[Rfam]
RNA: Bacterial large subunit ribosomal RNA, nucleotides 2671 to 2930
Organism: uncultured Chloroflexi bacterium 1i19
Nucleotides: 260
Base pairs, nucleotide, nucleotide: 001159002158003157004156005155006154007153008152011145012144013143014142017045018044019043020042021041022040023039047102048101049100050099051098055096056095057094062089063088064087065086066085067082068081069080070079071078072077107139108138113133114132115131116130117129162174163173164172176258179256180255181254182253183199184198185197186196187195204250205249206248207246208245209244210243211242213239214238220233221232222231223230224229
Number, partner (000 for none) and nucleotide at each position: 001159a002158g003157g004156a005155a006154a007153u008152u009000g010000a011145g012144a013143g014142g015000a016000g017045c018044u019043g020042u021041c022040c023039c024000u025000a026000g027000u028000a029000c030000g031000a032000g033000a034000g035000g036000a037000c038000c039023g040022g041021g042020a043019u044018g045017g046000a047102c048101a049100g050099a051098c052000c053000g054000c055096u056095g057094g058000u059000g060000u061000g062089c063088c064087a065086g066085u067082u068081g069080u070079c071078g072077u073000g074000c075000c076000a077072a078071c079070g080069g081068c082067a083000u084000a085066g086065c087064u088063g089062g090000g091000u092000a093000g094057c095056u096055a097000a098051g099050u100049c101048u102047g103000g104000g105000a106000c107139g108138g109000a110000u111000a112000a113133c114132c115131a116130c117129u118000g119000a120000a121000a122000g123000c124000a125000u126000c127000u128000a129117a130116g131115u132114g133113g134000g135000a136000a137000g138108c139107c140000a141000g142014c143013c144012u145011c146000a147000a148000g149000a150000u151000a152008a153007a154006u155005u156004u157003c158002c159001u160000c161000a162174c163173a164172g165000a166000g167000a168000u169000a170000g171000u172164c173163u174162g175000g176258u177000a178000a179256g180255u181254g182253c183199g184198c185197u186196g187195g188000u189000a190000g191000a192000c193000g194000a195187c196186c197185a198184g199183u200000u201000u202000g203000a204250u205249a206248g207246g208245c209244g210243g211242g212000a213239c214238g215000u216000g217000u218000a219000a220233g221232g222231a223230c224229u225000g226000a227000g228000a229224a230223g231222u232221c233220u234000u235000a236000a237000g238214c239213g240000a241000a242211c243210c244209c245208g246207u247000a248206c249205u250204a251000a252000a253182g254181c255180a256179c257000g258176a259000g260000g